Shown here is a 115-nucleotide RNA from Carpinus fangiana, a member of the family "MIR828 microRNA precursor family". It scores 97 bits against the family's covariance model.

RNA sequence: GUAACGUUUCUUGCUCAAAUGAGUAUUCCAACCACAGUUGCACAUGCUGAUUGACGAUCACCAUGAUGCUGGGUGCUACUGUUUUUGAGAUGCUCAUUUGAGCAAGCAAUGUUAA
Numbered sequence: 001g002u003a004a005c006g007u008u009u010c011u012u013g014c015u016c017a018a019a020u021g022a023g024u025a026u027u028c029c030a031a032c033c034a035c036a037g038u039u040g041c042a043c044a045u046g047c048u049g050a051u052u053g054a055c056g057a058u059c060a061c062c063a064u065g066a067u068g069c070u071g072g073g074u075g076c077u078a079c080u081g082u083u084u085u086u087g088a089g090a091u092g093c094u095c096a097u098u099u100g101a102g103c104a105a106g107c108a109a110u111g112u113u114a115a
Stems, first nucleotide, its partner, number of pairs: 004112005010106018029087002